[Rfam]
RNA sequence: CAGGGAAUCUGGCUUGAAGGAACUUCUGGUGUGAUAUGUAUUUAUCAAUAUAUCACAGCCAGUAGUUACCUACGAAAUGGGUUCCCGA
Numbered sequence: 001c002a003g004g005g006a007a008u009c010u011g012g013c014u015u016g017a018a019g020g021a022a023c024u025u026c027u028g029g030u031g032u033g034a035u036a037u038g039u040a041u042u043u044a045u046c047a048a049u050a051u052a053u054c055a056c057a058g059c060c061a062g063u064a065g066u067u068a069c070c071u072a073c074g075a076a077a078u079g080g081g082u083u084c085c086c087g088a
Base pairs, nucleotide, nucleotide: 003086004085005084006083007082008081009080010079011078018071019070020069021067022066023065024064026062027061028059030057031056032055033054034053035052036051037050038049
This 88-nucleotide RNA sequence from Tribolium castaneum belongs to the Rfam family "mir-2944 microRNA precursor family". The sequence is in the family's curated seed alignment. Rfam 15.1 lists 66 matches to the family in 42 species.